[Rfam]
RNA sequence: AGAGUGACGUGCGACUGGCGGAUAAGUGGAGAGAUACCACGGGGAGCACGUUCGAUAAGAAGCCGACCGCCUGGGCACCGCUU
Number, nucleotide and partner (000 for none) at each position: 001a000002g000003a000004g000005u000006g052007a051008c050009g049010u048011g047012c046013g000014a000015c043016u042017g071018g070019c069020g068021g067022a000023u000024a000025a000026g040027u039028g038029g037030a000031g000032a000033g000034a000035u000036a000037c029038c028039a027040c026041g000042g016043g015044g000045a000046g012047c011048a010049c009050g008051u007052u006053c000054g000055a000056u000057a000058a000059g000060a000061a000062g076063c075064c074065g000066a000067c021068c020069g019070c018071c017072u000073g000074g064075g063076c062077a000078c000079c000080g000081c000082u000083u000
RNA: ZMP/ZTP riboswitch aptamer (pfl RNA motif)
Organism: Hungatella hathewayi